[Rfam]
The family of this 74-nucleotide RNA sequence from Myotis brandtii is "mir-9193 microRNA precursor family".
RNA sequence: CGAGAGGCGGGGAGGUUCCCCAGCCCAGAUUGCAAGAGGGUGCAGGCCAGGCCAAGGGACCCCACCAGUGCACG
Numbered sequence: 001c002g003a004g005a006g007g008c009g010g011g012g013a014g015g016u017u018c019c020c021c022a023g024c025c026c027a028g029a030u031u032g033c034a035a036g037a038g039g040g041u042g043c044a045g046g047c048c049a050g051g052c053c054a055a056g057g058g059a060c061c062c063c064a065c066c067a068g069u070g071c072a073c074g
Base pairs, nucleotide, nucleotide: 004071006069009066010065012063014061015060016059017058018057019056023052024051025050028047030045031044032043033042034041
The family's consensus secondary structure was predicted with RNAalifold. Rfam 15.1 lists 6,008 matches to the family in 8 species.